[Rfam]
Record summary: Rfam assigns this 91-nucleotide RNA from Anabarilius grahami to the family "Small nucleolar RNA SNORD70". snoRNA HBII-234 belongs to the C/D family of snoRNAs. It is the human orthologue of the mouse MBII-234 and is predicted to guide 2'O-ribose methylation of the small 18S rRNA on position A512. It is hosted, together with HBII-95, by the core C/D box snoRNA protein encoding gene NOP5/NOP58. The literature on the family includes a 2001 paper in EMBO J by Huttenhofer et al., "RNomics: an experimental approach that identifies 201 candidates for novel, small, non-messenger RNAs in mouse". The pairing is the family consensus, mapped onto this sequence. A search with the family's covariance model found it, with a score of 54 bits. The family's RNA type in Rfam is C/D-box small nucleolar RNA.

RNA sequence: UCAGCUGUGUGUCUAUGAUGUAUCUGUAUAUCUGAAUAAAGCAUGAGGUUAACAAACAGUUAUUCGUCACUACCACUGAGACCACAGAUUU
Numbered sequence: 001u002c003a004g005c006u007g008u009g010u011g012u013c014u015a016u017g018a019u020g021u022a023u024c025u026g027u028a029u030a031u032c033u034g035a036a037u038a039a040a041g042c043a044u045g046a047g048g049u050u051a052a053c054a055a056a057c058a059g060u061u062a063u064u065c066g067u068c069a070c071u072a073c074c075a076c077u078g079a080g081a082c083c084a085c086a087g088a089u090u091u
Stems, first nucleotide, its partner, number of pairs: 003089001005087005011082003
Dot-bracket structure: ..(.(((((.(((..................................................................)))))))).)..